[Rfam]
A member of the RNA family "mir-9198 microRNA precursor family" from Myotis myotis, 79 nucleotides long. The family has 6 seed sequences and 64 matches in Rfam 15.1. The base pairs follow the family's consensus structure, which was predicted with RNAalifold. A search with the family's covariance model found it, with a score of 95 bits.
RNA sequence: GCCACUGCUCGCACCCACUGCUGGUGCCUGGUGCCGGUUCCGAUCACUUGGCACCAUCAGUGGGUGUGAGCGGUGGCUG
Numbered sequence: 001g002c003c004a005c006u007g008c009u010c011g012c013a014c015c016c017a018c019u020g021c022u023g024g025u026g027c028c029u030g031g032u033g034c035c036g037g038u039u040c041c042g043a044u045c046a047c048u049u050g051g052c053a054c055c056a057u058c059a060g061u062g063g064g065u066g067u068g069a070g071c072g073g074u075g076g077c078u079g
Base pairs, nucleotide, nucleotide: 004074005073006072007071008070009069010068011067012066013065014064015063016062017061018060019059020058022056023055024054025053026052027051028050